[Rfam]
RNA sequence: GCAGCGACGUGUGCGCAGUGUCUGUCUGUGAUUCGGGGGGGAAGCCGCUUGCGUCUUGCAUUCUGGCUGCUCCCAUCACACCGAUCCUGCGGCCGCAGAUAAACCUGAGGUCCAUAGUACUGGUCUAGCGACGUCCCUUGGACAAUCCCAACGCAGGCCGGCCUCCGACCCCUCUGACACUC
Numbered sequence: 001g002c003a004g005c006g007a008c009g010u011g012u013g014c015g016c017a018g019u020g021u022c023u024g025u026c027u028g029u030g031a032u033u034c035g036g037g038g039g040g041g042a043a044g045c046c047g048c049u050u051g052c053g054u055c056u057u058g059c060a061u062u063c064u065g066g067c068u069g070c071u072c073c074c075a076u077c078a079c080a081c082c083g084a085u086c087c088u089g090c091g092g093c094c095g096c097a098g099a100u101a102a103a104c105c106u107g108a109g110g111u112c113c114a115u116a117g118u119a120c121u122g123g124u125c126u127a128g129c130g131a132c133g134u135c136c137c138u139u140g141g142a143c144a145a146u147c148c149c150a151a152c153g154c155a156g157g158c159c160g161g162c163c164u165c166c167g168a169c170c171c172c173u174c175u176g177a178c179a180c181u182c
Base pairs, nucleotide, nucleotide: 013090014089029083030082032080035077036076037074038073039072040071041070044067045066046065047063050060051059052058107174108173109172110171120161121160122159123158124157125156128154129153130152133143134142135141
The record is a 182-nucleotide sequence from Leptobrachium leishanense, which matches "Small nucleolar RNA SNORA23" in Rfam. A search with the family's covariance model found it, with a score of 78 bits. By type it is an H/ACA-box small nucleolar RNA. The members of this family belong to the H/ACA class of snoRNAs which are thought to guide the sites of modification of uridines to pseudouridines. This family includes human snoRNA ACA23 (SNORA23) and mouse snoMBI-1. Pairs were carried over by alignment from the consensus structure, which was predicted with RNAalifold. The family has 9 seed sequences and 1,092 matches in Rfam 15.1.